RNA sequence: CAUAGGGAGGAACCAUCAUGCAAAAGGCAUGAUCUUAAAUGUUCCGACCGAAAGACCGCCGACCAAAGGGAGGGGGCAAUACAUAUU
Numbered sequence: 001c002a003u004a005g006g007g008a009g010g011a012a013c014c015a016u017c018a019u020g021c022a023a024a025a026g027g028c029a030u031g032a033u034c035u036u037a038a039a040u041g042u043u044c045c046g047a048c049c050g051a052a053a054g055a056c057c058g059c060c061g062a063c064c065a066a067a068g069g070g071a072g073g074g075g076g077c078a079a080u081a082c083a084u085a086u087u
Stems, first nucleotide, its partner, number of pairs: 009045005016032006056076002059073002063069002
RNA: GA-cis RNA
Organism: Lachnospiraceae bacterium KHCPX20